This 135-nucleotide RNA from Plesiomonas shigelloides belongs to the Rfam family "TPP riboswitch aptamer (THI element)". Taxonomically the source falls in Plesiomonas shigelloides (Bacteria, Pseudomonadota, Enterobacteriaceae, Plesiomonas).

[Rfam]
RNA sequence: UGAGAAUAGUCGGGGAACCUCGGUGUGACACAAGGCGGUAAGCCAUGAUGUCAUUGCGAGGCUGAGAUCGCGUAUGCGAGACCCGUAGAACCUGAUUCAGUUUGUACUGACGUAGGGAACUAUCCGCAUCUUGCA
Numbered sequence: 001u002g003a004g005a006a007u008a009g010u011c012g013g014g015g016a017a018c019c020u021c022g023g024u025g026u027g028a029c030a031c032a033a034g035g036c037g038g039u040a041a042g043c044c045a046u047g048a049u050g051u052c053a054u055u056g057c058g059a060g061g062c063u064g065a066g067a068u069c070g071c072g073u074a075u076g077c078g079a080g081a082c083c084c085g086u087a088g089a090a091c092c093u094g095a096u097u098c099a100g101u102u103u104g105u106a107c108u109g110a111c112g113u114a115g116g117g118a119a120c121u122a123u124c125c126g127c128a129u130c131u132u133g134c135a
Stems, first nucleotide, its partner, number of pairs: 006123005011085004018061004069078003091116004097110004